Notes:
The family of this 101-nucleotide sequence from Sodalis sp. Fse is "Alpha operon ribosome binding site".

[Rfam]
RNA sequence: UUGCAGCAACAUUGUUUGAAACGGGCUUUUCAGGACAGUGUUGCCGUUAAAAUUUUUAGGAGUGCAUAGUGGCCCGUAUAGCAGGCAUUAAUAUUCCUGAU
Numbered sequence: 001u002u003g004c005a006g007c008a009a010c011a012u013u014g015u016u017u018g019a020a021a022c023g024g025g026c027u028u029u030u031c032a033g034g035a036c037a038g039u040g041u042u043g044c045c046g047u048u049a050a051a052a053u054u055u056u057u058a059g060g061a062g063u064g065c066a067u068a069g070u071g072g073c074c075c076g077u078a079u080a081g082c083a084g085g086c087a088u089u090a091a092u093a094u095u096c097c098u099g100a101u
Base pairs, nucleotide, nucleotide: 004046006044007043008042009041010040011039012038013037022076023075024074025073030100031099032098
Overview
Pairs were carried over by alignment from the consensus structure, which is taken from published work. Rfam's curators write: The bacterial alpha operon ribosome binding site is surrounded by this complex pseudoknotted structure. Translation of the mRNA produces 4 ribosomal protein products, one of which (S4) acts as a translational repressor by binding to the nested pseudoknot region. A reference for the family is Schlax et al. (2001), "Translational repression of the Escherichia coli alpha operon mRNA: importance of an mRNA conformational switch and a ternary entrapment complex", J Biol Chem.